[Rfam]
RNA: Proteobacterial sRNA psRNA2
Organism: Nitrosospira multiformis
RNA sequence: GGGUUACUCCUUUGCGCUUUCAGCGCUCAAUUUGAUAAAGAUUCGCACCUCUAUCAAACCGGGUAACCCCGCUUUUCGCAAGGCCCUACUGUCAGAUUAAAUCUGAACUACUACAGCUAAAGUUCUCUCGAGUACUCUUGAUCUUGACUUGGUCUACAUCCGCCUUGCCCAGCCCAACAGCUCUGGCUUCACGGAGGCUAUAUGCAGCAA
Numbered sequence: 001g002g003g004u005u006a007c008u009c010c011u012u013u014g015c016g017c018u019u020u021c022a023g024c025g026c027u028c029a030a031u032u033u034g035a036u037a038a039a040g041a042u043u044c045g046c047a048c049c050u051c052u053a054u055c056a057a058a059c060c061g062g063g064u065a066a067c068c069c070c071g072c073u074u075u076u077c078g079c080a081a082g083g084c085c086c087u088a089c090u091g092u093c094a095g096a097u098u099a100a101a102u103c104u105g106a107a108c109u110a111c112u113a114c115a116g117c118u119a120a121a122g123u124u125c126u127c128u129c130g131a132g133u134a135c136u137c138u139u140g141a142u143c144u145u146g147a148c149u150u151g152g153u154c155u156a157c158a159u160c161c162g163c164c165u166u167g168c169c170c171a172g173c174c175c176a177a178c179a180g181c182u183c184u185g186g187c188u189u190c191a192c193g194g195a196g197g198c199u200a201u202a203u204g205c206a207g208c209a210a
Stems, first nucleotide, its partner, number of pairs: 001069007009062002014026004031058007039050002071208002076141003082137002091108002093105005110133003115128001158201002162198005